The record is a 182-nucleotide RNA sequence from Jeotgalibacillus sp. R-1-5s-1, which matches "Lysine riboswitch aptamer" in Rfam. The source organism's lineage runs through Bacteria, Bacillati, Caryophanales, Caryophanaceae and Jeotgalibacillus. The family's consensus secondary structure is taken from published work. A search with the family's covariance model found it, with a score of 125 bits.
RNA sequence: AGUGGUGAUAGAGGUGCGGACGUCAAAAGUAGCACAGCAGAGGAUGAUGAACUCCUUUGAAGCUGUGUGAAAGGGGCGGACCGCCGAAGUGAUCAGCCAUUCAUCAAGCUGAUUGCUGGUUCUGCAUUUAAGAGGUGCAGGGCUGUCAGGACAUUGACCUGUUCUGGAGAGCUAUCUCACCU
Number, nucleotide and partner (000 for none) at each position: 001a000002g000003u000004g000005g000006u000007g176008a175009u174010a173011g172012a000013g000014g000015u000016g084017c083018g082019g081020a000021c079022g077023u076024c075025a000026a000027a000028a000029g000030u000031a000032g068033c067034a066035c065036a064037g063038c062039a000040g000041a000042g000043g000044a000045u000046g000047a000048u000049g000050a000051a000052c000053u000054c000055c000056u000057u000058u000059g000060a000061a000062g038063c037064u036065g035066u034067g033068u032069g000070a000071a000072a000073g000074g000075g024076g023077c022078g000079g021080a000081c019082c018083g017084c016085c000086g000087a000088a117089g116090u115091g114092a113093u112094c111095a110096g109097c108098c000099a000100u000101u000102c000103a000104u000105c000106a000107a000108g097109c096110u095111g094112a093113u092114u091115g090116c089117u088118g144119g143120u142121u141122c140123u139124g138125c137126a136127u135128u134129u000130a000131a000132g000133a000134g128135g127136u126137g125138c124139a123140g122141g121142g120143c119144u118145g000146u167147c166148a165149g164150g163151a162152c161153a000154u000155u000156g000157a000158c000159c000160u000161g152162u151163u150164c149165u148166g147167g146168a000169g000170a000171g000172c011173u010174a009175u008176c007177u000178c000179a000180c000181c000182u000